[Rfam]
Annotation:
This 76-nucleotide RNA from Ameiurus melas belongs to the Rfam family "mir-7563 microRNA precursor family". The family's consensus secondary structure was predicted with RNAalifold. Gene Ontology terms of the family: miRNA-mediated post-transcriptional gene silencing and RISC complex. The source organism's lineage runs through Eukaryota, Eumetazoa, Osteoglossocephalai, Otomorpha and Ameiurus.
RNA sequence: ACCACAUACUCACCUACUAUAUAGUAGCCGAGAUAUAUGUAUUUCGCCUACUAUAUAGCAGGCAAGUACGCGGUUU
Numbered sequence: 001a002c003c004a005c006a007u008a009c010u011c012a013c014c015u016a017c018u019a020u021a022u023a024g025u026a027g028c029c030g031a032g033a034u035a036u037a038u039g040u041a042u043u044u045c046g047c048c049u050a051c052u053a054u055a056u057a058g059c060a061g062g063c064a065a066g067u068a069c070g071c072g073g074u075u076u
Stems, first nucleotide, its partner, number of pairs: 001074003005070001007068004013062003017058011029046003033042003